RNA sequence: UGAGUCGGCCAGGCGGUCGCGUCGGCACCUUCGGGUGUCGCCGAGGAACGUCCGGGCUCCACAGGGCAGGGUGGUGGCCAGCAGCCACCCGGGGUGACCCGCGGGACAGUGCCACAGAAAGCAGACCGCCCACGAACCACCCGUACGCGGGGAGGCGUGGGUAAGGGUGAAACGGUGGUGUAAGAGACCACCAGCGCCCCCGGUGACGGGGGCGGCUCGGUAAACCCCACCCGGAGCAAGACCAGACAGUGUGCGUUCGAGGGCUGCCCGCCCGAGCACACGGGUAGGUCGCUCGAGCCGUGCGGCAACGUACGGCCUAGAUGGAUGGCCGCUCAACGACAGAACCCGGCGUAUCGGCCGACUCAUCCA
Numbered sequence: 001u002g003a004g005u006c007g008g009c010c011a012g013g014c015g016g017u018c019g020c021g022u023c024g025g026c027a028c029c030u031u032c033g034g035g036u037g038u039c040g041c042c043g044a045g046g047a048a049c050g051u052c053c054g055g056g057c058u059c060c061a062c063a064g065g066g067c068a069g070g071g072u073g074g075u076g077g078c079c080a081g082c083a084g085c086c087a088c089c090c091g092g093g094g095u096g097a098c099c100c101g102c103g104g105g106a107c108a109g110u111g112c113c114a115c116a117g118a119a120a121g122c123a124g125a126c127c128g129c130c131c132a133c134g135a136a137c138c139a140c141c142c143g144u145a146c147g148c149g150g151g152g153a154g155g156c157g158u159g160g161g162u163a164a165g166g167g168u169g170a171a172a173c174g175g176u177g178g179u180g181u182a183a184g185a186g187a188c189c190a191c192c193a194g195c196g197c198c199c200c201c202g203g204u205g206a207c208g209g210g211g212g213c214g215g216c217u218c219g220g221u222a223a224a225c226c227c228c229a230c231c232c233g234g235a236g237c238a239a240g241a242c243c244a245g246a247c248a249g250u251g252u253g254c255g256u257u258c259g260a261g262g263g264c265u266g267c268c269c270g271c272c273c274g275a276g277c278a279c280a281c282g283g284g285u286a287g288g289u290c291g292c293u294c295g296a297g298c299c300g301u302g303c304g305g306c307a308a309c310g311u312a313c314g315g316c317c318u319a320g321a322u323g324g325a326u327g328g329c330c331g332c333u334c335a336a337c338g339a340c341a342g343a344a345c346c347c348g349g350c351g352u353a354u355c356g357g358c359c360g361a362c363u364c365a366u367c368c369a
Stems, first nucleotide, its partner, number of pairs: 001365010011354001012333007020043002023040006048352003052349005057236004064269004069232005074088005089103001090101004104227002109225002111221003126166002128162007174192006194216001195214008240290004249281006261273004297316008

A member of the RNA family "Bacterial RNase P class A" from Mobilicoccus pelagius, 369 nucleotides long. The base pairs follow the family's consensus structure, which is taken from published work. Rfam links the family to the GO terms dimeric ribonuclease P complex, ribonuclease P activity and tRNA processing. It scores 305 bits against the family's covariance model.